[Rfam]
RNA sequence: UCAGGGGGCCGGGCGACCGCGGGCCGCCGCUCAUAUGGGCGGAGGCGCGAGGAAAGUCCGGGCUCCACGGAAAACGGUGCCGGAUAACGUCCGGCGGGUCCGCCGUUUCGGCGGCGGAUCAAGGGACAGUGCAACAGAAAGCAGGUCGCGCAGGCUUCGGUCCCGCGACAGUGAAAGGGUGCGGUAAAAGCGCACCGCGUCGGCCGGCAACGGCCACGGCACGGUAAACCCCACCGGGAGCAAGACCGAAUAGGGGCGGCUAAGGGCUUUGAUGCCCGCUUCUUUCCGGAAGGCCGCCCGGGUUGGUCGCUUGAGCGGCGGAGCAAUCCGCCGCCUAGAGGAAUGGUCGCCCAUCCCUUUUCGAAGGGUGGACAAAACCCGGCUUACAGGCCCCCUGACAAU
Numbered sequence: 001u002c003a004g005g006g007g008g009c010c011g012g013g014c015g016a017c018c019g020c021g022g023g024c025c026g027c028c029g030c031u032c033a034u035a036u037g038g039g040c041g042g043a044g045g046c047g048c049g050a051g052g053a054a055a056g057u058c059c060g061g062g063c064u065c066c067a068c069g070g071a072a073a074a075c076g077g078u079g080c081c082g083g084a085u086a087a088c089g090u091c092c093g094g095c096g097g098g099u100c101c102g103c104c105g106u107u108u109c110g111g112c113g114g115c116g117g118a119u120c121a122a123g124g125g126a127c128a129g130u131g132c133a134a135c136a137g138a139a140a141g142c143a144g145g146u147c148g149c150g151c152a153g154g155c156u157u158c159g160g161u162c163c164c165g166c167g168a169c170a171g172u173g174a175a176a177g178g179g180u181g182c183g184g185u186a187a188a189a190g191c192g193c194a195c196c197g198c199g200u201c202g203g204c205c206g207g208c209a210a211c212g213g214c215c216a217c218g219g220c221a222c223g224g225u226a227a228a229c230c231c232c233a234c235c236g237g238g239a240g241c242a243a244g245a246c247c248g249a250a251u252a253g254g255g256g257c258g259g260c261u262a263a264g265g266g267c268u269u270u271g272a273u274g275c276c277c278g279c280u281u282c283u284u285u286c287c288g289g290a291a292g293g294c295c296g297c298c299c300g301g302g303u304u305g306g307u308c309g310c311u312u313g314a315g316c317g318g319c320g321g322a323g324c325a326a327u328c329c330g331c332c333g334c335c336u337a338g339a340g341g342a343a344u345g346g347u348c349g350c351c352c353a354u355c356c357c358u359u360u361u362c363g364a365a366g367g368g369u370g371g372a373c374a375a376a377a378c379c380c381g382g383c384u385u386a387c388a389g390g391c392c393c394c395c396u397g398a399c400a401a402u
Stems, first nucleotide, its partner, number of pairs: 001398010011387001012351007020049002023046003027042005054385003058382005063240004070287001072285002075236005080094005095123001097120010124231002129229002131225002146170001148166003153162003178196006197220001198218003202215005244308004254299006279292005315334008
Dot-bracket structure: ((((((((((((((((((.((.(((.(((((......))))).))).))....[[[.[[[[[((((...[.[[.((((((((((.....)))))(.((((((((((....))))))))))..)((...((((.............(.(((..(((....))).)))...).......((((((.......))))))((((.(((((....)))))))).)...))..)))))))))))))...((((......((((((...................(((((]].]))))).)))))).....))))......((((((((....))))))))..........)))))))..........................]]]]]]]].).))))))))))....